[Rfam]
RNA sequence: GCUGUUCUGUGAUGAGGUCCUGGGAUGUGUGCUGGGCAUAGCACCCGAGUCAGACUGAGGAGCCUUUCCUUGUUGCCUUCCUUCUGAGAACAGC
Numbered sequence: 001g002c003u004g005u006u007c008u009g010u011g012a013u014g015a016g017g018u019c020c021u022g023g024g025a026u027g028u029g030u031g032c033u034g035g036g037c038a039u040a041g042c043a044c045c046c047g048a049g050u051c052a053g054a055c056u057g058a059g060g061a062g063c064c065u066u067u068c069c070u071u072g073u074u075g076c077c078u079u080c081c082u083u084c085u086g087a088g089a090a091c092a093g094c
Base pairs, nucleotide, nucleotide: 001094002093003092004091005090
A member of the RNA family "Small nucleolar RNA U83B" from Cavia porcellus, 94 nucleotides long. Rfam describes the family as follows. U83B belongs to the C/D family of snoRNAs. U83B like U83A has no documented RNA target and they share the same host gene with the C/D box snoRNA U43 (RPL3). N.B. U83A/B/C have no sequence similarity with the U83 snoRNA that was cloned by Jady and Kiss (2000). Rfam links the family to the GO terms RNA processing and nucleolus. The pairing is the family consensus, mapped onto this sequence. For this family Rfam cites "Characterisation of the U83 and U84 small nucleolar RNAs: two novel 2'-O-ribose methylation guide RNAs that lack complementarities to ribosomal RNAs" (Jady and Kiss, Nucleic Acids Res, 2000). Rfam 15.1 lists 966 matches to the family in 652 species. The organism belongs to Cavia, within Eukaryota. The family's RNA type in Rfam is C/D-box small nucleolar RNA.